Fungal signal recognition particle RNA: a 264-nucleotide RNA from Pyrenophora seminiperda. A search with the family's covariance model found it, with a score of 142 bits. For this family Rfam cites "Crystal structure of the ribonucleoprotein core of the signal recognition particle" (Batey et al., Science, 2000). It is annotated as a non-coding RNA gene.
RNA sequence: ACCUGUAAUGGGUCUCCACCAGGAGGUGUAUCUCAUCCCCACCUAGCUUCCUGUCUGUGCUUCAGCAGGAGCCCAGUUCGAGUCUCGUGGUGUCCUUUUAUCCACUCACUUGGGUAACCAGUGAUGCUGGAGGGACCUAAGCAAUGAAUGCAAUUUGACGAGGGAAGAAAUUCUGCAGUCUGGCAUUCACCAUGGGACGGCGGCGCUGGAUUACUCUUAUUGGGGUUGGAAGUUGAGUGGCGGGCUGGUAUAUCAACUAGUAUU
Dot-bracket structure: (((.......)))....((.((...((((...((((((((((.((((((((.........(.(((.(((((.((((((((.(((((((((..((((((((..((.(((((.((....))))))))).)))))))).(...)...(((((((...(.(((....(((....)))....))).)))))))))))))))))..))).)))))....))))).)))..)..)))))))).)))).))).))).))))...)).))...